[Rfam]
RNA sequence: CGAUACAUAGGUGAUGGAGUUCACCGUUAACCACUGUUGAUCAGUUAAUGACUCCUGUAAAACA
Number, nucleotide and partner (000 for none) at each position: 001c000002g000003a000004u000005a000006c000007a000008u000009a000010g025011g024012u023013g022014a000015u000016g055017g054018a053019g052020u051021u050022c013023a012024c011025c010026g000027u000028u000029a000030a000031c000032c000033a045034c044035u043036g042037u000038u000039g000040a000041u000042c036043a035044g034045u033046u000047a000048a000049u000050g021051a020052c019053u018054c017055c016056u000057g000058u000059a000060a000061a000062a000063c000064a000

A member of the RNA family "Fluoride riboswitch aptamer (crcB RNA motif)" from Alkaliphilus serpentinus, 64 nucleotides long. The match comes from Rfam's covariance-model search (52 bits). The family's consensus secondary structure is taken from published work.